[Rfam]
Nucleotides: 131
Base pairs, nucleotide, nucleotide: 002059003058004057005056006055007054020043021042022041026037027036028035029034072123073121074120075119076118085109086108087107089105090104091103092102093101094100
Number, partner (000 for none) and nucleotide at each position: 001000a002059g003058c004057c005056u006055c007054c008000c009000g010000g011000u012000g013000c014000u015000u016000a017000c018000c019000a020043c021042a022041g023000g024000c025000u026037g027036u028035g029034u030000u031000c032000u033000u034029a035028c036027a037026c038000u039000g040000a041022c042021u043020g044000u045000a046000c047000a048000g049000a050000a051000a052000g053000a054007g055006g056005a057004g058003g059002c060000a061000g062000a063000g064000u065000a066000a067000a068000u069000c070000c071000a072123c073121c074120c075119a076118u077000a078000u079000a080000c081000a082000c083000c084000c085109c086108a087107g088000c089105c090104c091103a092102g093101g094100c095000u096000c097000u098000u099000u100094g101093c102092c103091u104090g105089g106000a107087c108086u109085g110000u111000a112000u113000u114000g115000u116000g117000a118076a119075u120074g121073g122000g123072g124000g125000g126000a127000c128000a129000u130000g131000a